[Rfam]
RNA sequence: UAUCGCCGUAGAGGCGCAACGACAAAGAGUAACUAUUAUUGGGGUGAUGCCAAUGAAUAAUAGUGAAAGGUGUAAGUUGCCGAAGUAAGUUGCAUAUCAAAGCGGCUUGCUGGUGUUGUAUUCGAAUAGGAACAACACUGCCAUAGUCUUUUAUGUAUAAACUAUGGAGCGCUACUGUAGGG
Dot-bracket structure: .....(.((((....(((((.(((.......((((((((.................))))))))......)))..)))))...((((((((((.(....).))))))))))((((((((.((......)).)))))))).(((((((.............)))))))....)))).).....
Numbered sequence: 001u002a003u004c005g006c007c008g009u010a011g012a013g014g015c016g017c018a019a020c021g022a023c024a025a026a027g028a029g030u031a032a033c034u035a036u037u038a039u040u041g042g043g044g045u046g047a048u049g050c051c052a053a054u055g056a057a058u059a060a061u062a063g064u065g066a067a068a069g070g071u072g073u074a075a076g077u078u079g080c081c082g083a084a085g086u087a088a089g090u091u092g093c094a095u096a097u098c099a100a101a102g103c104g105g106c107u108u109g110c111u112g113g114u115g116u117u118g119u120a121u122u123c124g125a126a127u128a129g130g131a132a133c134a135a136c137a138c139u140g141c142c143a144u145a146g147u148c149u150u151u152u153a154u155g156u157a158u159a160a161a162c163u164a165u166g167g168a169g170c171g172c173u174a175c176u177g178u179a180g181g182g
Stems, first nucleotide, its partner, number of pairs: 006177001008175004016080005022073003032064008084111010095100001112139008121130002141167007